[Rfam]
RNA sequence: AAUUAUUGGAGACCAGUAUCCAUUCAACCAACGGGGCGUAUUCCGAAGAGCCAUACAAGUAGGAAAAAU
Numbered sequence: 001a002a003u004u005a006u007u008g009g010a011g012a013c014c015a016g017u018a019u020c021c022a023u024u025c026a027a028c029c030a031a032c033g034g035g036g037c038g039u040a041u042u043c044c045g046a047a048g049a050g051c052c053a054u055a056c057a058a059g060u061a062g063g064a065a066a067a068a069u
Stems, first nucleotide, its partner, number of pairs: 007022003035052003042063002

The record is a 69-nucleotide sequence from a Bacteroidales bacterium, which matches "DUF805 RNA" in Rfam. Rfam classes the family as a cis-regulatory element. Lineage of the source: Bacteria > Pseudomonadati > Bacteroidota > Bacteroidia > Bacteroidales. It scores 60 bits against the family's covariance model. The family is grouped with related families in Rfam's "DUF805 clan".